[Rfam]
This 76-nucleotide RNA sequence from Lupinus albus belongs to the Rfam family "Small nucleolar RNA Z105". It is annotated as a C/D-box small nucleolar RNA. A reference for the family is Chen et al. (2003), "The high diversity of snoRNAs in plants: identification and comparative study of 120 snoRNA genes from Oryza sativa", Nucleic Acids Res. Lineage of the source: Eukaryota > Viridiplantae > eudicotyledons > fabids > Lupinus. Its family is annotated with nucleolus and RNA processing in the Gene Ontology.
RNA sequence: UUUGCAUGGUGAAGAAUCUUGAUUUUUUUCAUAUGUUUAGUCAUGUGAUGAAAUACAAUCCUCCUACUCAUUCUGA
Numbered sequence: 001u002u003u004g005c006a007u008g009g010u011g012a013a014g015a016a017u018c019u020u021g022a023u024u025u026u027u028u029u030c031a032u033a034u035g036u037u038u039a040g041u042c043a044u045g046u047g048a049u050g051a052a053a054u055a056c057a058a059u060c061c062u063c064c065u066a067c068u069c070a071u072u073c074u075g076a
Stems, first nucleotide, its partner, number of pairs: 006071004026052002030047005